[Rfam]
RNA sequence: UGCUCUAUGAUUACAUGCCAUUGUGGCAUUAUACACUAUUCUGAAGAAUUAAUUAUUUGUGGACUUGCUUUAUGAUGGAUGAGAGCU
Numbered sequence: 001u002g003c004u005c006u007a008u009g010a011u012u013a014c015a016u017g018c019c020a021u022u023g024u025g026g027c028a029u030u031a032u033a034c035a036c037u038a039u040u041c042u043g044a045a046g047a048a049u050u051a052a053u054u055a056u057u058u059g060u061g062g063a064c065u066u067g068c069u070u071u072a073u074g075a076u077g078g079a080u081g082a083g084a085g086c087u
Base pairs, nucleotide, nucleotide: 002086003085004084005083

Small nucleolar RNA U54: an 87-nucleotide RNA sequence from Kingdonia uniflora. The family has 21 seed sequences and 614 matches in Rfam 15.1. A search with the family's covariance model found it, with a score of 40 bits. From the family's description: U54 is a C/D box small nucleolar RNA, which acts as a methylation guide for 18S ribosomal RNA in plants. The organism belongs to Kingdonia, within Eukaryota.